Shown here is a 68-nucleotide RNA sequence from Podarcis muralis, a member of the family "mir-155 microRNA precursor family". Rfam links the family to the GO terms miRNA-mediated post-transcriptional gene silencing and RISC complex.
[Rfam]
RNA sequence: CUGUUAAUGCUAAUCGUGAUAGGGGUUUAUUUUAUUUCUAACUGACUCCUACGUGUUAGCAUUAGUGG
Numbered sequence: 001c002u003g004u005u006a007a008u009g010c011u012a013a014u015c016g017u018g019a020u021a022g023g024g025g026u027u028u029a030u031u032u033u034a035u036u037u038c039u040a041a042c043u044g045a046c047u048c049c050u051a052c053g054u055g056u057u058a059g060c061a062u063u064a065g066u067g068g
Base pairs, nucleotide, nucleotide: 004065005064006063007062008061009060010059011058012057013056014055020051021050022049023048025046026045027044
It scores 74 bits against the family's covariance model.
The source organism's lineage runs through Eukaryota, Metazoa, Bilateria, Lacertibaenia and Podarcis.